[Rfam]
RNA sequence: CCGUGCUAGAUGGGGAGCUAGCGGUUCCCUGUACCUGCAAACCGCUUAUGCAGGAUCGAUCGCUUUUUGGAGGUUUUUCUGACUUUUGGUACUUUUUAAGUAAGUGGUGUUGAAGGCUGGGUCUCAUGCAAUAAGACUAUGUGAACCUGGUCAGGUGCGGAAGCAAGCAGCCAUAAGCAUUUGUACUUAUGUGCCGUGGGGUUGCCUGGUCGGAGCUAACUGCCUGGAAAGUCUAACGGAAAGAGAAUCGAAAAAAAGUGCACGG
Numbered sequence: 001c002c003g004u005g006c007u008a009g010a011u012g013g014g015g016a017g018c019u020a021g022c023g024g025u026u027c028c029c030u031g032u033a034c035c036u037g038c039a040a041a042c043c044g045c046u047u048a049u050g051c052a053g054g055a056u057c058g059a060u061c062g063c064u065u066u067u068u069g070g071a072g073g074u075u076u077u078u079c080u081g082a083c084u085u086u087u088g089g090u091a092c093u094u095u096u097u098a099a100g101u102a103a104g105u106g107g108u109g110u111u112g113a114a115g116g117c118u119g120g121g122u123c124u125c126a127u128g129c130a131a132u133a134a135g136a137c138u139a140u141g142u143g144a145a146c147c148u149g150g151u152c153a154g155g156u157g158c159g160g161a162a163g164c165a166a167g168c169a170g171c172c173a174u175a176a177g178c179a180u181u182u183g184u185a186c187u188u189a190u191g192u193g194c195c196g197u198g199g200g201g202u203u204g205c206c207u208g209g210u211c212g213g214a215g216c217u218a219a220c221u222g223c224c225u226g227g228a229a230a231g232u233c234u235a236a237c238g239g240a241a242a243g244a245g246a247a248u249c250g251a252a253a254a255a256a257a258g259u260g261c262a263c264g265g
Base pairs, nucleotide, nucleotide: 001265002264003263004262005261006260009057010056011055012030013029014028015027016026017025018024019023034054035053036052037051038050039049063258064257065256066255067254068253072249073248074247075246076245080240083239084238086236087235088234089233093230094229096227097226098225100223101222104220105219106217107216108215115211116210117209118208119207120206121205122204123200124199125198126197127196128195129191130190132189133188134187135186139180140179141178142177148173149172150171151170156165157164158163
This 265-nucleotide RNA sequence from Candidatus Scalindua rubra belongs to the Rfam family "Bacterial large signal recognition particle RNA". The source organism's lineage runs through Bacteria, Pseudomonadati, Candidatus Brocadiia, Candidatus Brocadiales and Candidatus Scalindua.